[Rfam]
The record is a 415-nucleotide part of an RNA from Salmo salar, which matches "Eukaryotic large subunit ribosomal RNA" in Rfam.

RNA sequence: AAGUCGGCAAGUCAGAUCCGUAACUUCGGGAUAAGGAUUGGCUCUAAGGGCUGGGUCGGUCGGGCUGGGGUGCGAAGCGGGGCUGGGCUCGAGCCGCGGCUGGGGGAGCAGUUGCUCCGCCGCCCUCCUCUCGCCACCGUUGGAAGUUUGUCGUGCGGCCCAUCUCGGGGGCUCUCGUUCGUGGUCUCGCAAGGGGCUGCGUUUGGGGGUUCAUCGGGGUGGUGUCCGUCGGUGGGCCGAAGACGGACCGGUGAGGGGUUGGGUCCGGCGGUUGGCAGCGGCGACUCUGGACGCGUGCCGGGCCCUUCUCGCGGAUCUCCCCAGCUACGGUGCUCGUCGGCCCCGUUAACGCGGGGUCUCCGGCGGGUUGCCUCGGCCGGCGCCUAGCAGCUGACUUAGAACUGGUGCGGACCAG
Numbered sequence: 001a002a003g004u005c006g007g008c009a010a011g012u013c014a015g016a017u018c019c020g021u022a023a024c025u026u027c028g029g030g031a032u033a034a035g036g037a038u039u040g041g042c043u044c045u046a047a048g049g050g051c052u053g054g055g056u057c058g059g060u061c062g063g064g065c066u067g068g069g070g071u072g073c074g075a076a077g078c079g080g081g082g083c084u085g086g087g088c089u090c091g092a093g094c095c096g097c098g099g100c101u102g103g104g105g106g107a108g109c110a111g112u113u114g115c116u117c118c119g120c121c122g123c124c125c126u127c128c129u130c131u132c133g134c135c136a137c138c139g140u141u142g143g144a145a146g147u148u149u150g151u152c153g154u155g156c157g158g159c160c161c162a163u164c165u166c167g168g169g170g171g172c173u174c175u176c177g178u179u180c181g182u183g184g185u186c187u188c189g190c191a192a193g194g195g196g197c198u199g200c201g202u203u204u205g206g207g208g209g210u211u212c213a214u215c216g217g218g219g220u221g222g223u224g225u226c227c228g229u230c231g232g233u234g235g236g237c238c239g240a241a242g243a244c245g246g247a248c249c250g251g252u253g254a255g256g257g258g259u260u261g262g263g264u265c266c267g268g269c270g271g272u273u274g275g276c277a278g279c280g281g282c283g284a285c286u287c288u289g290g291a292c293g294c295g296u297g298c299c300g301g302g303c304c305c306u307u308c309u310c311g312c313g314g315a316u317c318u319c320c321c322c323a324g325c326u327a328c329g330g331u332g333c334u335c336g337u338c339g340g341c342c343c344c345g346u347u348a349a350c351g352c353g354g355g356g357u358c359u360c361c362g363g364c365g366g367g368u369u370g371c372c373u374c375g376g377c378c379g380g381c382g383c384c385u386a387g388c389a390g391c392u393g394a395c396u397u398a399g400a401a402c403u404g405g406u407g408c409g410g411a412c413c414a415g
Stems, first nucleotide, its partner, number of pairs: 015039005024029001040403002043400006049392005055381009064152001066150001068148002071145001077140004081135003085131003091125001093123002096120004100111003404408001

It is one of the family's seed sequences.